RNA sequence: UCUGGUGUCAAUGAUGACUGAACUUUUUUCCCCAGCAGAUCGACAAUGUUGACUGUUCGGUACUUUAGCCAAACUUUGUCUGAUUCACCAGA
Numbered sequence: 001u002c003u004g005g006u007g008u009c010a011a012u013g014a015u016g017a018c019u020g021a022a023c024u025u026u027u028u029u030c031c032c033c034a035g036c037a038g039a040u041c042g043a044c045a046a047u048g049u050u051g052a053c054u055g056u057u058c059g060g061u062a063c064u065u066u067a068g069c070c071a072a073a074c075u076u077u078g079u080c081u082g083a084u085u086c087a088c089c090a091g092a
Base pairs, nucleotide, nucleotide: 001092002091003090004089005088006087007086

Small nucleolar SNORD12/SNORD106: a 92-nucleotide RNA from Acipenser ruthenus. On this family, see Vitali et al., Nucleic Acids Res 2003: "Identification of 13 novel human modification guide RNAs". Lineage of the source: Eukaryota > Bilateria > Chondrostei > Acipenseroidei > Acipenser. The match comes from Rfam's covariance-model search (75 bits). The family's consensus secondary structure was predicted with RNAalifold. Rfam links the family to the GO terms nucleolus and RNA processing.